[Rfam]
RNA sequence: GAGUGAAAUGAUGGCAUUUCAUCUUUCGGGACAGACCUGAUAAUGGUGACUACUUUUUAGACUGAUCACUC
Numbered sequence: 001g002a003g004u005g006a007a008a009u010g011a012u013g014g015c016a017u018u019u020c021a022u023c024u025u026u027c028g029g030g031a032c033a034g035a036c037c038u039g040a041u042a043a044u045g046g047u048g049a050c051u052a053c054u055u056u057u058u059a060g061a062c063u064g065a066u067c068a069c070u071c
Stems, first nucleotide, its partner, number of pairs: 001071006
Dot-bracket structure: ((((((...........................................................))))))

This 71-nucleotide sequence from Oncorhynchus kisutch belongs to the Rfam family "Small nucleolar RNA SNORD2".
NCBI's taxonomy places the organism under Eukaryota, Chordata, Craniata, Salmoniformes, Oncorhynchus.
The literature on the family includes a 2004 paper in Gene by Zhou et al., "Identification of a novel box C/D snoRNA from mouse nucleolar cDNA library".
It scores 62 bits against the family's covariance model.
The family's consensus secondary structure was predicted with WAR.